Shown here is a 90-nucleotide RNA sequence from Papio anubis, a member of the family "Small nucleolar RNA SNORD116". For this family Rfam cites "Identification of brain-specific and imprinted small nucleolar RNA genes exhibiting an unusual genomic organization" (Cavaille et al., Proc Natl Acad Sci U S A, 2000). Gene Ontology terms of the family: RNA processing and nucleolus.

[Rfam]
RNA sequence: GGAUCGAAGGAUGACUUCCAUGUACAUUCCUUGAAAGCUGGAACAAAAUGAGGAAAACUCUAUAACGGCCAUCCUCACGAACUGAGGUCC
Numbered sequence: 001g002g003a004u005c006g007a008a009g010g011a012u013g014a015c016u017u018c019c020a021u022g023u024a025c026a027u028u029c030c031u032u033g034a035a036a037g038c039u040g041g042a043a044c045a046a047a048a049u050g051a052g053g054a055a056a057a058c059u060c061u062a063u064a065a066c067g068g069c070c071a072u073c074c075u076c077a078c079g080a081a082c083u084g085a086g087g088u089c090c
Stems, first nucleotide, its partner, number of pairs: 001090005025053001027052003031046003
The family's RNA type in Rfam is C/D-box small nucleolar RNA.